[Rfam]
RNA sequence: GUGGGUGCGGUCAUGAAGUCUAUUGUUAGGAGUUAUGACUAGAAUUUCUUAUAUGGGUUCAACCCAGAAGCUGAAGACCACCCCUUGGCUGUCUGAGCAACCAC
Numbered sequence: 001g002u003g004g005g006u007g008c009g010g011u012c013a014u015g016a017a018g019u020c021u022a023u024u025g026u027u028a029g030g031a032g033u034u035a036u037g038a039c040u041a042g043a044a045u046u047u048c049u050u051a052u053a054u055g056g057g058u059u060c061a062a063c064c065c066a067g068a069a070g071c072u073g074a075a076g077a078c079c080a081c082c083c084c085u086u087g088g089c090u091g092u093c094u095g096a097g098c099a100a101c102c103a104c
Base pairs, nucleotide, nucleotide: 001104002103003102004101006099007098008097045076046075047074048073052069054067056065057064
Rfam assigns this 104-nucleotide RNA sequence from Coptis chinensis to the family "Small nucleolar RNA Z157/R69/R10". Rfam 15.1 lists 836 matches to the family in 232 species. Rfam classes the family as a C/D-box small nucleolar RNA. Taxonomically the source falls in Coptis (Eukaryota, Streptophytina, Embryophyta, Spermatophyta). The literature on the family includes a 2003 paper in Nucleic Acids Res by Chen et al., "The high diversity of snoRNAs in plants: identification and comparative study of 120 snoRNA genes from Oryza sativa".